[Rfam]
RNA: DUF805 RNA
RNA sequence: AAAAAGUGGAGACCAGAACCCACUUAAAUAAACGGGGUGGAACCGAAAAACCUUACGAGUAGGAAAUCU
Numbered sequence: 001a002a003a004a005a006g007u008g009g010a011g012a013c014c015a016g017a018a019c020c021c022a023c024u025u026a027a028a029u030a031a032a033c034g035g036g037g038u039g040g041a042a043c044c045g046a047a048a049a050a051c052c053u054u055a056c057g058a059g060u061a062g063g064a065a066a067u068c069u
Stems, first nucleotide, its partner, number of pairs: 006023004036052003043063002